[Rfam]
RNA: Group II catalytic intron D1-D4-5
Organism: Lentibacillus sp. CBA3610
RNA sequence: UCUAACGUUACAACGGAGGAUGGGAAUGACGGAACCAUGUUUCCUGAAACCACCCCAUCAAUAUUCCUGCGUGCGUCAUGAAUGACAGUUCAUGGGGUACGAAGCACAGGUAGAGUCGGCAGAAGGAAGGCUAAAUCCAAUCCAAUUGGAAAGGGUAUGCUAACUGAUAUGCCGGAUGGCUGAAAA
Numbered sequence: 001u002c003u004a005a006c007g008u009u010a011c012a013a014c015g016g017a018g019g020a021u022g023g024g025a026a027u028g029a030c031g032g033a034a035c036c037a038u039g040u041u042u043c044c045u046g047a048a049a050c051c052a053c054c055c056c057a058u059c060a061a062u063a064u065u066c067c068u069g070c071g072u073g074c075g076u077c078a079u080g081a082a083u084g085a086c087a088g089u090u091c092a093u094g095g096g097g098u099a100c101g102a103a104g105c106a107c108a109g110g111u112a113g114a115g116u117c118g119g120c121a122g123a124a125g126g127a128a129g130g131c132u133a134a135a136u137c138c139a140a141u142c143c144a145a146u147u148g149g150a151a152a153g154g155g156u157a158u159g160c161u162a163a164c165u166g167a168u169a170u171g172c173c174g175g176a177u178g179g180c181u182g183a184a185a186a
Stems, first nucleotide, its partner, number of pairs: 018055002021052003031045002034042001056178004066110004070101005076095008117174005125165002129161002131149003